[Rfam]
RNA sequence: AGCGACGUUGCGCGAGAGACCGCCCGGUAUGCCCGGCGGCACCGAAGGCGCAAAUCCGCCCGGAAUCGCUCAGGUAAAAGGAGCGCAGCGUCGAU
Numbered sequence: 001a002g003c004g005a006c007g008u009u010g011c012g013c014g015a016g017a018g019a020c021c022g023c024c025c026g027g028u029a030u031g032c033c034c035g036g037c038g039g040c041a042c043c044g045a046a047g048g049c050g051c052a053a054a055u056c057c058g059c060c061c062g063g064a065a066u067c068g069c070u071c072a073g074g075u076a077a078a079a080g081g082a083g084c085g086c087a088g089c090g091u092c093g094a095u
Base pairs, nucleotide, nucleotide: 006090007089008088009087010086011085012084013083020039021038022037023036041075042074043073044071045070048069049068050067055062
Rfam assigns this 95-nucleotide RNA sequence from Fontimonas thermophila to the family "Glycine riboswitch aptamer".